[Rfam]
RNA sequence: GCUUUCUGAACAGCUGGUAUAGCUACAGAGAAACCAGCCCUCUUCACACUGC
Numbered sequence: 001g002c003u004u005u006c007u008g009a010a011c012a013g014c015u016g017g018u019a020u021a022g023c024u025a026c027a028g029a030g031a032a033a034c035c036a037g038c039c040c041u042c043u044u045c046a047c048a049c050u051g052c
Stems, first nucleotide, its partner, number of pairs: 001052002005048001007046003013038006020025001

Shown here is a 52-nucleotide sequence from Hipposideros armiger, a member of the family "MAT2A 3'UTR stem loop C". A reference for the family is Parker et al. (2011), "New families of human regulatory RNA structures identified by comparative analysis of vertebrate genomes", Genome Res. The base pairs follow the family's consensus structure, which is taken from published work. The organism belongs to Hipposideros, within Eukaryota. By type it is a cis-regulatory element.